[Rfam]
RNA sequence: GCGUGAGGACGACCUCCCCCGUCAGGGUUCAGCAGUCGGGACGGCCCGG
Numbered sequence: 001g002c003g004u005g006a007g008g009a010c011g012a013c014c015u016c017c018c019c020c021g022u023c024a025g026g027g028u029u030c031a032g033c034a035g036u037c038g039g040g041a042c043g044g045c046c047c048g049g
Base pairs, nucleotide, nucleotide: 001020003018005016006015007014008013036049037048038047039046040045
RNA: Guanidine-II riboswitch aptamer (mini-ykkC)